[Rfam]
RNA sequence: UGAAGCUGCGCGGGAGAGACCCCGCCUCGAGCGGGGCGCCGAAGGAGCAAACUCCCCACAAACUCUCAGGCACCAGUACCGCGCAGUCAGG
Numbered sequence: 001u002g003a004a005g006c007u008g009c010g011c012g013g014g015a016g017a018g019a020c021c022c023c024g025c026c027u028c029g030a031g032c033g034g035g036g037c038g039c040c041g042a043a044g045g046a047g048c049a050a051a052c053u054c055c056c057c058a059c060a061a062a063c064u065c066u067c068a069g070g071c072a073c074c075a076g077u078a079c080c081g082c083g084c085a086g087u088c089a090g091g
Stems, first nucleotide, its partner, number of pairs: 006086008020036004038071003041067002045065003
Dot-bracket structure: .....((((((((......((((.........)))).(((((..(((...............))))).))).......)))))))).....
About this RNA
Rfam assigns this 91-nucleotide RNA sequence from Saccharopolyspora rectivirgula to the family "Glycine riboswitch aptamer". Its family is annotated with glycine biosynthetic process in the Gene Ontology.